[Rfam]
The record is a 138-nucleotide RNA from Couchioplanes caeruleus, which matches "c-di-AMP riboswitch aptamer (ydaO/yuaA leader)" in Rfam. The match comes from Rfam's covariance-model search (83 bits).
RNA sequence: GGCGGACCACCGCUCAAUCGCCGCACGGCGAAUCGGGGAACCACCUUGAAAAGGGGUGAAUCCGCAGAGCCUUGCGGUAGGGAUCGCUUCCGUCCCGAACCCGUCAGCUAACCCGGUAGGCGGCAACACGGAAGGAAA
Number, nucleotide and partner (000 for none) at each position: 001g000002g000003c000004g000005g000006a000007c000008c000009a000010c000011c122012g121013c120014u119015c000016a000017a000018u031019c030020g029021c000022c000023g000024c000025a000026c000027g000028g000029c020030g019031a018032a117033u116034c115035g114036g113037g112038g000039a000040a000041c000042c053043a000044c000045c000046u000047u000048g000049a000050a000051a000052a000053g042054g102055g101056g100057u000058g000059a000060a000061u000062c077063c076064g075065c074066a000067g000068a000069g000070c000071c000072u000073u000074g065075c064076g063077g062078u000079a000080g096081g095082g094083a093084u000085c000086g000087c000088u000089u000090c000091c000092g000093u083094c082095c081096c080097g000098a000099a000100c056101c055102c054103g000104u000105c000106a000107g000108c000109u000110a000111a000112c037113c036114c035115g034116g033117u032118a000119g014120g013121c012122g011123g000124c000125a000126a000127c000128a000129c000130g000131g000132a000133a000134g000135g000136a000137a000138a000